[Rfam]
Annotation: DUF3800-XI RNA: a 49-nucleotide RNA sequence. The base pairs follow the family's consensus structure, which is taken from published work.

RNA sequence: UGGGCUGGUCGAAAGACCCGGGGUCCACCAAAUGGCGGGUAAGACACCC
Numbered sequence: 001u002g003g004g005c006u007g008g009u010c011g012a013a014a015g016a017c018c019c020g021g022g023g024u025c026c027a028c029c030a031a032a033u034g035g036c037g038g039g040u041a042a043g044a045c046a047c048c049c
Stems, first nucleotide, its partner, number of pairs: 001027006007018004
Annotation
The sequence is in the family's curated seed alignment. Rfam describes the family as follows. Actinobacteria, Firmicutes, Proteobacteria, Spirochaetes (1 example).